RNA sequence: GGGUCGAUGAUGAGGAGACCACUGCGCAAUCUGAGUUCUGGGAACCAGAUGAUGGAGUGCGUUGGGACUGAGACCG
Number, nucleotide and partner (000 for none) at each position: 001g000002g075003g074004u073005c072006g000007a000008u000009g000010a000011u000012g000013a000014g000015g000016a000017g000018a000019c000020c000021a000022c000023u000024g000025c000026g000027c000028a000029a000030u000031c000032u000033g000034a000035g000036u000037u000038c048039u047040g046041g045042g000043a000044a000045c041046c040047a039048g038049a000050u000051g000052a000053u000054g000055g000056a000057g000058u000059g000060c000061g000062u000063u000064g000065g000066g000067a000068c000069u000070g000071a000072g005073a004074c003075c002076g000
RNA: small Cajal body-specific RNA 18
Organism: Pipistrellus kuhlii